RNA: Small nucleolar RNA snoR31/Z110/Z27
RNA sequence: AGCAUCAUGUGAUGAGAUUGGAAUACUAUCUUAGGACACCUUCCAACACAGUCCGACAAUGGCUGUGAAUGAGAAAGAAAAUCCUUUCUGAUGAUGCU
Number, nucleotide and partner (000 for none) at each position: 001a098002g097003c096004a095005u094006c093007a092008u000009g000010u000011g000012a000013u000014g000015a000016g000017a000018u000019u000020g000021g000022a000023a000024u000025a000026c000027u000028a000029u000030c000031u000032u000033a000034g000035g000036a000037c000038a000039c000040c000041u000042u000043c000044c000045a000046a000047c000048a000049c000050a000051g000052u000053c000054c000055g000056a000057c000058a000059a000060u000061g000062g000063c000064u000065g000066u000067g000068a000069a000070u000071g000072a000073g000074a000075a000076a000077g000078a000079a000080a000081a000082u000083c000084c000085u000086u000087u000088c000089u000090g000091a000092u007093g006094a005095u004096g003097c002098u001